Shown here is an 80-nucleotide RNA from Electrophorus electricus, a member of the family "Small nucleolar RNA SNORD74". It scores 71 bits against the family's covariance model. For this family Rfam cites "Classification of gas5 as a multi-small-nucleolar-RNA (snoRNA) host gene and a member of the 5'-terminal oligopyrimidine gene family reveals common features of snoRNA host genes" (Smith and Steitz, Mol Cell Biol, 1998). The base pairs follow the family's consensus structure, which was predicted with PFOLD. Lineage of the source: Eukaryota > Vertebrata > Actinopterygii > Actinopteri > Electrophorus. The family is grouped with related families in Rfam's "SNORD74 clan".
RNA sequence: CCAUGCACGCAUGACGAAAACUAUGUUGGUAGGGACAUCUGAGAAAAGGUGAUGAAUGCCAACGUUUCUGACCUGCGUGG
Number, nucleotide and partner (000 for none) at each position: 001c080002c079003a078004u077005g076006c000007a000008c000009g000010c000011a000012u000013g000014a000015c000016g000017a000018a000019a000020a000021c000022u000023a000024u000025g000026u000027u000028g000029g000030u000031a000032g000033g000034g000035a000036c000037a000038u000039c000040u000041g000042a000043g000044a000045a000046a000047a000048g000049g000050u000051g000052a000053u000054g000055a000056a000057u000058g000059c000060c000061a000062a000063c000064g000065u000066u000067u000068c000069u000070g000071a000072c000073c000074u000075g000076c005077g004078u003079g002080g001